The family of this 79-nucleotide RNA sequence from Terrapene triunguis is "mir-17 microRNA precursor family". Pairs were carried over by alignment from the consensus structure, which was predicted with RNAalifold. For this family Rfam cites "Identification of novel genes coding for small expressed RNAs" (Lagos-Quintana et al., Science, 2001). Taxonomically the source falls in Terrapene (Eukaryota, Euteleostomi, Dipnotetrapodomorpha, Sauria). Its family is annotated with RISC complex and miRNA-mediated post-transcriptional gene silencing in the Gene Ontology. This family represents the microRNA (miRNA) precursor mir-17, family, which includes mir-20, mir-91, and mir-103. miRNAs are transcribed as ~70nt precursors (modelled here) and subsequently processed by the Dicer enzyme to give a ~22nt product. In this case the mature sequence comes from the 3' arm of the precursor. The extents of the hairpin precursors are not generally known and are estimated based on hairpin prediction.
[Rfam]
RNA sequence: CCAGAGGCUCCAAAGUGCUGUUCGUGCAGGUAGCGUGUGCAGCCAACUACUGCCGAGUCAGCGCUUCGCGAGCCCCCCG
Numbered sequence: 001c002c003a004g005a006g007g008c009u010c011c012a013a014a015g016u017g018c019u020g021u022u023c024g025u026g027c028a029g030g031u032a033g034c035g036u037g038u039g040c041a042g043c044c045a046a047c048u049a050c051u052g053c054c055g056a057g058u059c060a061g062c063g064c065u066u067c068g069c070g071a072g073c074c075c076c077c078c079g
Base pairs, nucleotide, nucleotide: 004076006074007073009071010070013066014065015064016063017062018061019060020059022057026053027052029051030050031049032048033047